Shown here is a 68-nucleotide RNA from Phyllotreta striolata, a member of the family "mir-2 microRNA precursor family". Rfam 15.1 lists 918 matches to the family in 280 species.
RNA sequence: CUACUCAUCAACUUGGUUGUGACUUCUGGGCUUUCUGAGAGAUAUCACAGCCACUUUGAUGAGCUAGG
Numbered sequence: 001c002u003a004c005u006c007a008u009c010a011a012c013u014u015g016g017u018u019g020u021g022a023c024u025u026c027u028g029g030g031c032u033u034u035c036u037g038a039g040a041g042a043u044a045u046c047a048c049a050g051c052c053a054c055u056u057u058g059a060u061g062a063g064c065u066a067g068g
Base pairs, nucleotide, nucleotide: 005062006061007060008059009058010057011056014053015052016051017050018049019048020047021046022045025044027042